[Rfam]
Record summary: The record is a 110-nucleotide RNA from Panagrellus redivivus, which matches "SL2 RNA" in Rfam. About the family: This family represents SL2 RNA. SL2 RNA is involved in trans splicing in lower eukaryotes. Trans-splicing is a form of RNA processing. The family is grouped with related families in Rfam's "SL clan". Rfam classes the family as a non-coding RNA gene. The match comes from Rfam's covariance-model search (42 bits).
Nucleotides: 110
Base pairs, nucleotide, nucleotide: 007034008033009030010029013026014025018023039059040058041057042055043054044053045052046051084108088104089103092099093098
Number, partner (000 for none) and nucleotide at each position: 001000g002000g003000u004000u005000u006000u007034u008033a009030c010029c011000c012000a013026g014025u015000a016000u017000c018023u019000c020000a021000a022000g023018g024000u025014a026013c027000u028000a029010g030009g031000a032000a033008u034007g035000u036000u037000c038000u039059g040058a041057c042055c043054a044053a045052u046051g047000c048000u049000u050000g051046c052045a053044u054043u055042g056000u057041g058040u059039u060000u061000g062000a063000a064000a065000a066000c067000a068000a069000a070000a071000u072000u073000u074000u075000u076000g077000g078000a079000a080000a081000a082000c083000g084108g085000c086000c087000a088104c089103c090000g091000g092099g093098g094000u095000u096000u097000a098093c099092c100000g101000g102000a103089g104088g105000c106000c107000u108084u109000a110000u